Shown here is a 148-nucleotide RNA from Plasmodium falciparum, a member of the family "small nucleolar RNA snoR27". By type it is an H/ACA-box small nucleolar RNA. NCBI's taxonomy places the organism under Eukaryota, Aconoidasida, Plasmodiidae, Laverania, Plasmodium falciparum. It is one of the family's seed sequences. On this family, see Chakrabarti et al., RNA 2007: "Structural RNAs of known and unknown function identified in malaria parasites by comparative genomics and RNA analysis". The base pairs follow the family's consensus structure, which was predicted with RNAalifold.
RNA sequence: AAUGCUGAUUUACCACAGUGGCAACUAAUUUUUUCUUCAUUUACUGUUUACUGCCAGAAUCAGCUAAAUCGAUUUCAUUAAUUUUAGGAACCAUAGAAAAAAUUGGAGAAUUUUUUUUUUUGUGGGGCCGUAUUUUAUGAAUACAAAU
Numbered sequence: 001a002a003u004g005c006u007g008a009u010u011u012a013c014c015a016c017a018g019u020g021g022c023a024a025c026u027a028a029u030u031u032u033u034u035c036u037u038c039a040u041u042u043a044c045u046g047u048u049u050a051c052u053g054c055c056a057g058a059a060u061c062a063g064c065u066a067a068a069u070c071g072a073u074u075u076c077a078u079u080a081a082u083u084u085u086a087g088g089a090a091c092c093a094u095a096g097a098a099a100a101a102a103u104u105g106g107a108g109a110a111u112u113u114u115u116u117u118u119u120u121u122g123u124g125g126g127g128c129c130g131u132a133u134u135u136u137a138u139g140a141a142u143a144c145a146a147a148u
Stems, first nucleotide, its partner, number of pairs: 004064006011058001016053004020048004074141005087129002091125001095118010